The record is a 148-nucleotide sequence from Ectopseudomonas mendocina, which matches "proV RNA" in Rfam.

RNA sequence: CGUCGCUGCCGACUCCCAGGGGGAGCGGCAGACUGGGGCCCCACAACCCCGGACCGAAGAACAGAUAAGCGCUGGCCCACCACUACGGGCGCCAGCCCAACAAGAAAUUUCGGAUGUACGCAUGCUCCAGGAAGGAGCAUGAACCCCC
Numbered sequence: 001c002g003u004c005g006c007u008g009c010c011g012a013c014u015c016c017c018a019g020g021g022g023g024a025g026c027g028g029c030a031g032a033c034u035g036g037g038g039c040c041c042c043a044c045a046a047c048c049c050c051g052g053a054c055c056g057a058a059g060a061a062c063a064g065a066u067a068a069g070c071g072c073u074g075g076c077c078c079a080c081c082a083c084u085a086c087g088g089g090c091g092c093c094a095g096c097c098c099a100a101c102a103a104g105a106a107a108u109u110u111c112g113g114a115u116g117u118a119c120g121c122a123u124g125c126u127c128c129a130g131g132a133a134g135g136a137g138c139a140u141g142a143a144c145c146c147c148c
Base pairs, nucleotide, nucleotide: 006031007030008029009028010027011026013025014024015023016022033052034051035050036049037048038047121141122140123139124138125137126136127135128134
By type it is a small RNA. The organism belongs to Ectopseudomonas mendocina, within Bacteria.